The family of this 129-nucleotide RNA sequence from Callorhinchus milii is "Small nucleolar RNA U109". The family's RNA type in Rfam is H/ACA-box small nucleolar RNA. Taxonomically the source falls in Callorhinchus (Eukaryota, Craniata, Vertebrata, Holocephali).
[Rfam]
RNA sequence: UUGCACUCUCUGCUCCUUCCUCAAAUAAGGAGUCUGAUAUUCCAGCAACGUGCUAAAAUAAUGCAGGAGACAUCAGGGCCAUCUGUCUCAGAGGAGCAGACUGAAAGGUAGUAUACGUCUCCAACAUGA
Number, nucleotide and partner (000 for none) at each position: 001u048002u000003g000004c000005a000006c000007u000008c000009u036010c000011u000012g033013c032014u031015c030016c029017u000018u000019c000020c000021u000022c000023a000024a000025a000026u000027a000028a000029g016030g015031a014032g013033u012034c000035u000036g009037a000038u000039a000040u000041u000042c000043c000044a000045g000046c000047a000048a001049c000050g000051u000052g000053c000054u000055a000056a000057a000058a000059u000060a000061a000062u000063g000064c000065a000066g122067g121068a120069g119070a000071c000072a000073u000074c000075a000076g000077g000078g109079c108080c000081a000082u105083c103084u000085g101086u100087c099088u098089c096090a000091g000092a000093g000094g000095a000096g089097c000098a088099g087100a086101c085102u000103g083104a000105a082106a000107g000108g079109u078110a000111g000112u000113a000114u000115a000116c000117g000118u000119c069120u068121c067122c066123a000124a000125c000126a000127u000128g000129a000